[Rfam]
RNA sequence: AUCUGGCAGGAGUGAUGAAUCAAUUAGAUGUGUGAAGUGAUCUUAUGAGCUGAACUUUUGAGGCUUAUUGAUAUUCUGACCUGCCAAUU
Number, nucleotide and partner (000 for none) at each position: 001a089002u000003c000004u086005g085006g084007c083008a082009g081010g080011a000012g000013u000014g000015a000016u000017g000018a000019a000020u000021c000022a000023a000024u000025u000026a000027g000028a000029u000030g000031u000032g000033u000034g000035a000036a000037g000038u000039g000040a000041u000042c000043u000044u000045a000046u000047g000048a000049g000050c000051u000052g000053a000054a000055c000056u000057u000058u000059u000060g000061a000062g000063g000064c000065u000066u000067a000068u000069u000070g000071a000072u000073a000074u000075u000076c000077u000078g000079a000080c010081c009082u008083g007084c006085c005086a004087a000088u000089u001
A member of the RNA family "Small nucleolar RNA Z266" from Elaeis guineensis, 89 nucleotides long.
On this family, see Chen et al., Nucleic Acids Res 2003: "The high diversity of snoRNAs in plants: identification and comparative study of 120 snoRNA genes from Oryza sativa".
The family has 11 seed sequences and 719 matches in Rfam 15.1.
The source organism's lineage runs through Eukaryota, Viridiplantae, Magnoliopsida, Mesangiospermae and Elaeis.